[Rfam]
RNA sequence: GCACGUGAUCUGCCUAAUCCACGCAGUCAGGAGGCGUGGAACCGGGGACCCAAAAGCCCUGAUUUUUCUGGGCUAGGGGUGAAUCAACGCCAAUGCGUUGUAGGGCGAACUUCCACGCCCGAACCCGUCAGCUAACCCGGUCGGCAUUGGUGGAAGACACA
Number, nucleotide and partner (000 for none) at each position: 001g000002c000003a000004c000005g000006u000007g000008a000009u000010c000011u146012g145013c144014c143015u000016a000017a000018u040019c039020c038021a037022c036023g035024c034025a000026g000027u000028c000029a000030g000031g000032a000033g000034g024035c023036g022037u021038g020039g019040a018041a141042c140043c139044g138045g137046g136047g000048a000049c000050c000051c076052a000053a000054a000055a000056g000057c000058c000059c000060u000061g000062a000063u000064u000065u000066u000067u000068c000069u000070g000071g000072g000073c000074u000075a000076g051077g126078g125079g124080u000081g000082a000083a000084u000085c100086a099087a098088c097089g000090c000091c000092a000093a000094u000095g000096c000097g088098u087099u086100g085101u000102a000103g120104g119105g118106c117107g000108a000109a000110c000111u000112u000113c000114c000115a000116c000117g106118c105119c104120c103121g000122a000123a000124c079125c078126c077127g000128u000129c000130a000131g000132c000133u000134a000135a000136c046137c045138c044139g043140g042141u041142c000143g014144g013145c012146a011147u000148u000149g000150g000151u000152g000153g000154a000155a000156g000157a000158c000159a000160c000161a000
RNA: c-di-AMP riboswitch aptamer (ydaO/yuaA leader)